Shown here is a 53-nucleotide sequence, a member of the family "Mu-gpT-DE RNA". The family's RNA type in Rfam is small RNA.
[Rfam]
RNA sequence: CCCUGACAGGUACAUCCCGUAUCUGACAUUAGCCACGACAGGAGAUAAUCAUG
Numbered sequence: 001c002c003c004u005g006a007c008a009g010g011u012a013c014a015u016c017c018c019g020u021a022u023c024u025g026a027c028a029u030u031a032g033c034c035a036c037g038a039c040a041g042g043a044g045a046u047a048a049u050c051a052u053g
Base pairs, nucleotide, nucleotide: 002042003041004040005039007025008024009023010022011021